RNA sequence: AAUAAGUGAUGAAAAAUGUUUUGGUCCCAGAUGAUGAUCGGUGAUAAAUCUUUUUUCUGAUGUU
Numbered sequence: 001a002a003u004a005a006g007u008g009a010u011g012a013a014a015a016a017u018g019u020u021u022u023g024g025u026c027c028c029a030g031a032u033g034a035u036g037a038u039c040g041g042u043g044a045u046a047a048a049u050c051u052u053u054u055u056u057c058u059g060a061u062g063u064u
Stems, first nucleotide, its partner, number of pairs: 001064004
The family of this 64-nucleotide RNA from Ochotona princeps is "Small nucleolar RNA SNORD73". Lineage of the source: Eukaryota > Eumetazoa > Amniota > Ochotonidae > Ochotona. Rfam's curators put it in the seed alignment. By type it is a C/D-box small nucleolar RNA. Rfam 15.1 lists 769 matches to the family in 586 species. The base pairs follow the family's consensus structure, which was predicted with PFOLD. A reference for the family is Rebane et al. (1998), "A novel snoRNA (U73) is encoded within the introns of the human and mouse ribosomal protein S3a genes", Gene.